[Rfam]
RNA sequence: AUAAUGAUACUUCUGAACGUUCAGGCUGCCAACGAUAAAGGACAGCGGGAGAGAUACCCAUGA
Dot-bracket structure: ...........(((((....)))).(((((.........)).))).(((.......))))...
pemK RNA: a 63-nucleotide RNA sequence from Streptococcus ictaluri. Taxonomically the source falls in Streptococcus ictaluri (Bacteria, Bacillota, Bacilli, Streptococcus).